[Rfam]
RNA sequence: UGAUUCGACACGGGGUGUCCUGCUUGCAGGGCUGAGAUAACACCCGUUGAACCUGAUCCAGUUCACACUGGCGAAGGGAUGUCAGCCGCAGGCGUC
Numbered sequence: 001u002g003a004u005u006c007g008a009c010a011c012g013g014g015g016u017g018u019c020c021u022g023c024u025u026g027c028a029g030g031g032c033u034g035a036g037a038u039a040a041c042a043c044c045c046g047u048u049g050a051a052c053c054u055g056a057u058c059c060a061g062u063u064c065a066c067a068c069u070g071g072c073g074a075a076g077g078g079a080u081g082u083c084a085g086c087c088g089c090a091g092g093c094g095u096c
Base pairs, nucleotide, nucleotide: 007083008082009081010080011046012045013044014043016040017032018031019030020029021028052077053076054075058071059070060069061068
Shown here is a 96-nucleotide sequence from Marinobacter antarcticus, a member of the family "TPP riboswitch aptamer (THI element)". Taxonomically the source falls in Marinobacter (Bacteria, Pseudomonadati, Gammaproteobacteria, Marinobacteraceae).